[Rfam]
RNA sequence: ACGGAAGAACGGAAGGCCAGGAACGGCUCAGAAGAGAAGGACCGUUUCCCCAACCCGGAUUCCCAGCACGGGCACUAGGGCACCCACGCGGAGCACAAGCCACUAUAAGGGCAGAAGUGUUGUGGGCCUGCGAGAUUCGUUCAAUUUGAGCGAGGACUCCGCACAAGUUGCGGGGACGACCUCAAAAUGGCGAUCCCUCGCCGAGGCCAUCCACACAACCCACCGAGCACGCUUGGUAACGAGUAGUCCGUGCUAACGGGCGGCGAAGUCGAUAAUCGGCAGCGCCGCCCGUUUUGUGUG
Numbered sequence: 001a002c003g004g005a006a007g008a009a010c011g012g013a014a015g016g017c018c019a020g021g022a023a024c025g026g027c028u029c030a031g032a033a034g035a036g037a038a039g040g041a042c043c044g045u046u047u048c049c050c051c052a053a054c055c056c057g058g059a060u061u062c063c064c065a066g067c068a069c070g071g072g073c074a075c076u077a078g079g080g081c082a083c084c085c086a087c088g089c090g091g092a093g094c095a096c097a098a099g100c101c102a103c104u105a106u107a108a109g110g111g112c113a114g115a116a117g118u119g120u121u122g123u124g125g126g127c128c129u130g131c132g133a134g135a136u137u138c139g140u141u142c143a144a145u146u147u148g149a150g151c152g153a154g155g156a157c158u159c160c161g162c163a164c165a166a167g168u169u170g171c172g173g174g175g176a177c178g179a180c181c182u183c184a185a186a187a188u189g190g191c192g193a194u195c196c197c198u199c200g201c202c203g204a205g206g207c208c209a210u211c212c213a214c215a216c217a218a219c220c221c222a223c224c225g226a227g228c229a230c231g232c233u234u235g236g237u238a239a240c241g242a243g244u245a246g247u248c249c250g251u252g253c254u255a256a257c258g259g260g261c262g263g264c265g266a267a268g269u270c271g272a273u274a275a276u277c278g279g280c281a282g283c284g285c286c287g288c289c290c291g292u293u294u295u296g297u298g299u300g
Stems, first nucleotide, its partner, number of pairs: 003063002006061002010057003015051002020048002024044003028040002065254008075243002080240001084236003088232003093228002099112003119219006125208005130201004137193004144188003148183003151178002157175007256292010268280003
Notes:
Shown here is a 300-nucleotide RNA from Rhodococcus sp. AD45, a member of the family "Mycobacterium smegmatis small RNA 1". It scores 168 bits against the family's covariance model. The organism belongs to Rhodococcus, within Bacteria. The literature on the family includes a 2014 paper in Nucleic Acids Res by Hnilicova et al., "Ms1, a novel sRNA interacting with the RNA polymerase core in mycobacteria". From the family's description: Mycobacterium smegmatis small RNA 1 is highly expressed during stationary phase of growth. Ms1 RNA directly interacts with RNA polymerase (RNAP), but in a different way than 6S, which is present in other bacteria. Ms1 does not require the presence of the main sigma factor for RNAP interaction. Pairs were carried over by alignment from the consensus structure, which was predicted with CMfinder.